Record summary
The record is a 505-nucleotide RNA from Polyangium spumosum, which matches "Saccharopolyspora sRNA 350" in Rfam. Pairs were carried over by alignment from the consensus structure, which was predicted with RNAfold.

RNA sequence: UUGGCCGUGAAGGACCAGUAGUCCUGCGUCUCGAGCAGCGCCUCGUAGCUGUAAUGGUCGCCGUCCGCGAGGACCUCGAGCACCGUCUCGUCACCGUACUUGCCGGUCCCGAUCUUGUUGAUCUUGCCGUGCGCGAUGAGGCAGAUAUGAUCGGCCUCCUUGCCGCGCUCGGUGAUGACCUCGCCGGGCUUGUAUUCGCGCUGCACGAAGCGGCUCGCCAGCGUGCUCAGGACCUCGACGUCCUCGUAGCCGCGCAGCAGCGGCAGCUCGCAGAGCUCCUGCGGGAUGACCUGGAUCUUGGCGCCGGUGUUCGUGAACUCCACGCGGCCGUCGCCGACCGCGUAGCUCAGGCGGCGGUUGACGCGGUAGACGCCGUUGACGUGCACCCACGGCAAGAGCUUGAGCAGCCACCGCGACGAGAUCCCCUGCAUCUGCGGGGCCGAUUUCGUCGUCGUCGCGAGCUGCCGUGCGGCCGCGGUCGCGAGGCUCGUCUGCUGCUGAUCGA
Numbered sequence: 001u002u003g004g005c006c007g008u009g010a011a012g013g014a015c016c017a018g019u020a021g022u023c024c025u026g027c028g029u030c031u032c033g034a035g036c037a038g039c040g041c042c043u044c045g046u047a048g049c050u051g052u053a054a055u056g057g058u059c060g061c062c063g064u065c066c067g068c069g070a071g072g073a074c075c076u077c078g079a080g081c082a083c084c085g086u087c088u089c090g091u092c093a094c095c096g097u098a099c100u101u102g103c104c105g106g107u108c109c110c111g112a113u114c115u116u117g118u119u120g121a122u123c124u125u126g127c128c129g130u131g132c133g134c135g136a137u138g139a140g141g142c143a144g145a146u147a148u149g150a151u152c153g154g155c156c157u158c159c160u161u162g163c164c165g166c167g168c169u170c171g172g173u174g175a176u177g178a179c180c181u182c183g184c185c186g187g188g189c190u191u192g193u194a195u196u197c198g199c200g201c202u203g204c205a206c207g208a209a210g211c212g213g214c215u216c217g218c219c220a221g222c223g224u225g226c227u228c229a230g231g232a233c234c235u236c237g238a239c240g241u242c243c244u245c246g247u248a249g250c251c252g253c254g255c256a257g258c259a260g261c262g263g264c265a266g267c268u269c270g271c272a273g274a275g276c277u278c279c280u281g282c283g284g285g286a287u288g289a290c291c292u293g294g295a296u297c298u299u300g301g302c303g304c305c306g307g308u309g310u311u312c313g314u315g316a317a318c319u320c321c322a323c324g325c326g327g328c329c330g331u332c333g334c335c336g337a338c339c340g341c342g343u344a345g346c347u348c349a350g351g352c353g354g355c356g357g358u359u360g361a362c363g364c365g366g367u368a369g370a371c372g373c374c375g376u377u378g379a380c381g382u383g384c385a386c387c388c389a390c391g392g393c394a395a396g397a398g399c400u401u402g403a404g405c406a407g408c409c410a411c412c413g414c415g416a417c418g419a420g421a422u423c424c425c426c427u428g429c430a431u432c433u434g435c436g437g438g439g440c441c442g443a444u445u446u447c448g449u450c451g452u453c454g455u456c457g458c459g460a461g462c463u464g465c466c467g468u469g470c471g472g473c474c475g476c477g478g479u480c481g482c483g484a485g486g487c488u489c490g491u492c493u494g495c496u497g498c499u500g501a502u503c504g505a
Base pairs, nucleotide, nucleotide: 007386008385009384011382015378018328019327021325022324025322026321029316030315036313037311038310039309040308041307042306045305048302049301050300051299055232058229060227062225063224064223065111067109077102078101079100080099082097083096085094086093117222118221119220120219122217127212130209131206133204134203135202138199140197143196144195150191154189155188156187158186161183163177166174167173168172235295236294240290241289242288244286245285251281252280254278256277257276258275260271261270262269329342330341331340351376352375353374354373355372388428389427391425392424396423397422399420400419401418404414405413407412434473435472437470439468440467442465445461446460447459448458449457474504475503477499478498479497481495482494484493485492
Dot-bracket structure: ......(((.(...(..((.((..((..((.....(((((((..(..((((...(..(.(.((((.(.........((((.((.((......)).)).))))......).).....((((.(....(..((.(((..(.(..((.....(...(((.(..(.(..(((...)))..).....)..)))).)...))).)..))).)..)..)....).))))))).).)..)..((...(((.((.....((.(.(((.(((......)))...)))).))...)).)))...))...))))..))))))).).))....)).)).))(((........)))........(((((................))))).)...).))).((.((...((.(((..((.(....)))...))).)))).)).....((.(.((.(..(((((.......)))))...).)).).))((.(((.((.((......)))).)))...)).